[Rfam]
Shown here is a 113-nucleotide RNA from Brachypodium distachyon, a member of the family "MIR5070 microRNA precursor family". A search with the family's covariance model found it, with a score of 113 bits. Its family is annotated with RISC complex and miRNA-mediated post-transcriptional gene silencing in the Gene Ontology. NCBI's taxonomy places the organism under Eukaryota, Mesangiospermae, Petrosaviidae, Stipodae, Brachypodium. The base pairs follow the family's consensus structure, which was predicted with RNAalifold.
RNA sequence: CAGGGUACCCUUUGACCCUCCUUAGUUCAACCAAAUGAGCUAAAGUUUUAAAAUGACAUAACUUUUUGAAAAACUAGUUCAUUUGUUACUAAGGAGGGUCAAAGGGUACCCUG
Numbered sequence: 001c002a003g004g005g006u007a008c009c010c011u012u013u014g015a016c017c018c019u020c021c022u023u024a025g026u027u028c029a030a031c032c033a034a035a036u037g038a039g040c041u042a043a044a045g046u047u048u049u050a051a052a053a054u055g056a057c058a059u060a061a062c063u064u065u066u067u068g069a070a071a072a073a074c075u076a077g078u079u080c081a082u083u084u085g086u087u088a089c090u091a092a093g094g095a096g097g098g099u100c101a102a103a104g105g106g107u108a109c110c111c112u113g
Base pairs, nucleotide, nucleotide: 002112003111004110005109006108007107008106009105010104011103012102013101014100015099016098017097018096019095020094021093022092023091024090025089026088030087032085033084034083035082036081037080038079039078040077041076042075